[Rfam]
Description:
Rfam assigns this 99-nucleotide RNA from Brachypodium distachyon to the family "Small nucleolar RNA snoR99". The base pairs follow the family's consensus structure, which was predicted with WAR. A search with the family's covariance model found it, with a score of 61 bits. For this family Rfam cites "Experimental RNomics: identification of 140 candidates for small non-messenger RNAs in the plant Arabidopsis thaliana" (Marker et al., Curr Biol, 2002).
RNA sequence: UCGCCUCUGGGAUGAAGCAGCCCCUAACAUAUUAAUCAUCCCCUUCACUUUGUCUGCUAAAACCUUUUAUUUGGCUGAUCAUUAGUGGAUGUGAGAUUU
Numbered sequence: 001u002c003g004c005c006u007c008u009g010g011g012a013u014g015a016a017g018c019a020g021c022c023c024c025u026a027a028c029a030u031a032u033u034a035a036u037c038a039u040c041c042c043c044u045u046c047a048c049u050u051u052g053u054c055u056g057c058u059a060a061a062a063c064c065u066u067u068u069a070u071u072u073g074g075c076u077g078a079u080c081a082u083u084a085g086u087g088g089a090u091g092u093g094a095g096a097u098u099u
Stems, first nucleotide, its partner, number of pairs: 037091004052079003056075004